[Rfam]
RNA sequence: UAAUAAAAAAUGAGAAGAGAGAUAUGCACAAUCAUAUCUCCCUUAUGUAGAACCGUUAAAAAGACGGUAGCUUUUGUUUAAAUAGUUUUAAC
Numbered sequence: 001u002a003a004u005a006a007a008a009a010a011u012g013a014g015a016a017g018a019g020a021g022a023u024a025u026g027c028a029c030a031a032u033c034a035u036a037u038c039u040c041c042c043u044u045a046u047g048u049a050g051a052a053c054c055g056u057u058a059a060a061a062a063g064a065c066g067g068u069a070g071c072u073u074u075u076g077u078u079u080a081a082a083u084a085g086u087u088u089u090a091a092c
Base pairs, nucleotide, nucleotide: 023036024035025034026033052068053067054066055065056064057063

Shown here is a 92-nucleotide RNA sequence from Vagococcus salmoninarum, a member of the family "RNA anti-toxin A". The base pairs follow the family's consensus structure, which was predicted with RNAalifold. Its family is annotated with negative regulation of translation and mRNA binding in the Gene Ontology. It is annotated as an antitoxin RNA. A reference for the family is Fozo et al. (2010), "Abundance of type I toxin-antitoxin systems in bacteria: searches for new candidates and discovery of novel families", Nucleic Acids Res. Rfam 15.1 lists 190 matches to the family in 120 species. Taxonomically the source falls in Vagococcus (Bacteria, Bacilli, Lactobacillales, Enterococcaceae).